[Rfam]
RNA sequence: AUAGGGGGAACUCUGGCUAAGAACGCCUCUUCCUGCGACAACGCCUGAGUGACCAACAUCGUAUUGG
Numbered sequence: 001a002u003a004g005g006g007g008g009a010a011c012u013c014u015g016g017c018u019a020a021g022a023a024c025g026c027c028u029c030u031u032c033c034u035g036c037g038a039c040a041a042c043g044c045c046u047g048a049g050u051g052a053c054c055a056a057c058a059u060c061g062u063a064u065u066g067g
Base pairs, nucleotide, nucleotide: 011049012048013047015045016044017043025039027037029035053067054066055065056064
The record is a 67-nucleotide RNA from Solibacillus sp. R5-41, which matches "Bacillaceae-1 RNA" in Rfam.
Lineage of the source: Bacteria > Bacillota > Bacilli > Caryophanaceae > Solibacillus.
By type it is a small RNA.
Pairs were carried over by alignment from the consensus structure, which is taken from published work.
A search with the family's covariance model found it, with a score of 49 bits.